[Rfam]
Shown here is a 120-nucleotide RNA from Antarcticibacterium arcticum, a member of the family "Bacteroidete tryptophan peptide leader RNA".
The base pairs follow the family's consensus structure, which is taken from published work.
It is annotated as a cis-regulatory leader.
The match comes from Rfam's covariance-model search (50 bits).
RNA sequence: UCCUGACCUAUAUUUGACCAAUGCAAAAUUUAAUUUUACAUAGCUGGUGGUGGAAUAAUUUACGUCAAAACGUCGUGAAGUAACACUGCUAUAGUAUGAUCAUAUAUACAAAGGCUUGUC
Numbered sequence: 001u002c003c004u005g006a007c008c009u010a011u012a013u014u015u016g017a018c019c020a021a022u023g024c025a026a027a028a029u030u031u032a033a034u035u036u037u038a039c040a041u042a043g044c045u046g047g048u049g050g051u052g053g054a055a056u057a058a059u060u061u062a063c064g065u066c067a068a069a070a071c072g073u074c075g076u077g078a079a080g081u082a083a084c085a086c087u088g089c090u091a092u093a094g095u096a097u098g099a100u101c102a103u104a105u106a107u108a109c110a111a112a113g114g115c116u117u118g119u120c
Base pairs, nucleotide, nucleotide: 036102038100040097041096042095045091046090047089049087050086051085052084056082057081059079060078061077062073063072064071